RNA sequence: UCGUUCGUGAGGAGAUAAAGCUUCUCGGGGUGGAAACAAGGUCACACUCCUGAGCAGCUUUCGGA
Dot-bracket structure: ..............(..(((((..((((((((............))).)))))..))))))....
About this RNA
A member of the RNA family "Cyano-1 RNA" from Synechococcus sp. RS9916, 65 nucleotides long. Lineage of the source: Bacteria > Cyanobacteriota > Cyanophyceae > Synechococcaceae > Synechococcus. It is one of the family's seed sequences. The family's RNA type in Rfam is small RNA.